[Rfam]
RNA sequence: UGUUGGCAGGAGUGAUGAAUCAAUUAGAUGUGUGAGGUCACCUUAUGAACUUAAACUUUUGAGGCAUAAAUUAUGUCUGACCUGCCAAUG
Numbered sequence: 001u002g003u004u005g006g007c008a009g010g011a012g013u014g015a016u017g018a019a020u021c022a023a024u025u026a027g028a029u030g031u032g033u034g035a036g037g038u039c040a041c042c043u044u045a046u047g048a049a050c051u052u053a054a055a056c057u058u059u060u061g062a063g064g065c066a067u068a069a070a071u072u073a074u075g076u077c078u079g080a081c082c083u084g085c086c087a088a089u090g
Stems, first nucleotide, its partner, number of pairs: 001090010
The family of this 90-nucleotide RNA sequence from Digitaria exilis is "Small nucleolar RNA Z266". The literature on the family includes a 2003 paper in Nucleic Acids Res by Chen et al., "The high diversity of snoRNAs in plants: identification and comparative study of 120 snoRNA genes from Oryza sativa". A search with the family's covariance model found it, with a score of 100 bits. The family's consensus secondary structure was predicted with PFOLD. Gene Ontology terms of the family: RNA processing and nucleolus.